[Rfam]
RNA: Small nucleolar RNA SNORD103/SNORD85
RNA sequence: UCUGGCAAUGAUGACACACUUGCCCUCACUGAGAACAGCAUUCGAUGAUGAGAAUUUAAAUGUACUCAGUAUUUCUGAGCCAGA
Numbered sequence: 001u002c003u004g005g006c007a008a009u010g011a012u013g014a015c016a017c018a019c020u021u022g023c024c025c026u027c028a029c030u031g032a033g034a035a036c037a038g039c040a041u042u043c044g045a046u047g048a049u050g051a052g053a054a055u056u057u058a059a060a061u062g063u064a065c066u067c068a069g070u071a072u073u074u075c076u077g078a079g080c081c082a083g084a
Base pairs, nucleotide, nucleotide: 001084002083003082004081005080006079